[Rfam]
RNA sequence: CCUCCCACAUUCAUAAAGAGUGUGGAGCGGUAGAGAAAUGCUCUAUCCAAAAUCCUUUGAAUUGCUGGAACCUCGUAAAGCUAACUAAACUACAACAUAUUAUCUUUAUAGAUAACAAUGUGAAUGUUACGAAAGUAGAAAAAAUUAGUUAGAUGGCAUAUGGUUAAAUCCUACGUGCUUUCAAACAAUCGACAAUCAGCAGCGAAGCUCGAGAGAGAACGUUCAACGACUAUCCCAUUGGGGAGUACACUAUAAGCAAAUGAUAGUGGAAGUGGAGGACACCUACGGAGGGUGAUGAUAUAGUCUACGCACAUAUGAAAGUAUGUG
Numbered sequence: 001c002c003u004c005c006c007a008c009a010u011u012c013a014u015a016a017a018g019a020g021u022g023u024g025g026a027g028c029g030g031u032a033g034a035g036a037a038a039u040g041c042u043c044u045a046u047c048c049a050a051a052a053u054c055c056u057u058u059g060a061a062u063u064g065c066u067g068g069a070a071c072c073u074c075g076u077a078a079a080g081c082u083a084a085c086u087a088a089a090c091u092a093c094a095a096c097a098u099a100u101u102a103u104c105u106u107u108a109u110a111g112a113u114a115a116c117a118a119u120g121u122g123a124a125u126g127u128u129a130c131g132a133a134a135g136u137a138g139a140a141a142a143a144a145u146u147a148g149u150u151a152g153a154u155g156g157c158a159u160a161u162g163g164u165u166a167a168a169u170c171c172u173a174c175g176u177g178c179u180u181u182c183a184a185a186c187a188a189u190c191g192a193c194a195a196u197c198a199g200c201a202g203c204g205a206a207g208c209u210c211g212a213g214a215g216a217g218a219a220c221g222u223u224c225a226a227c228g229a230c231u232a233u234c235c236c237a238u239u240g241g242g243g244a245g246u247a248c249a250c251u252a253u254a255a256g257c258a259a260a261u262g263a264u265a266g267u268g269g270a271a272g273u274g275g276a277g278g279a280c281a282c283c284u285a286c287g288g289a290g291g292g293u294g295a296u297g298a299u300a301u302a303g304u305c306u307a308c309g310c311a312c313a314u315a316u317g318a319a320a321g322u323a324u325g326u327g
Stems, first nucleotide, its partner, number of pairs: 005025008029042003053279004058274002063201006073192003202222002209215001226306001228305005282292003312325005
The family of this 327-nucleotide sequence from Epulopiscium sp. Nele67-Bin004 is "Group I catalytic intron". About the family: Group I catalytic introns are large self-splicing ribozymes. The family's consensus secondary structure is taken from published work. It scores 85 bits against the family's covariance model. Lineage of the source: Bacteria > Bacillota > Clostridia > Lachnospirales > Candidatus Epulonipiscium. The literature on the family includes a 1990 paper in Annu Rev Biochem by Cech, "Self-splicing of group I introns".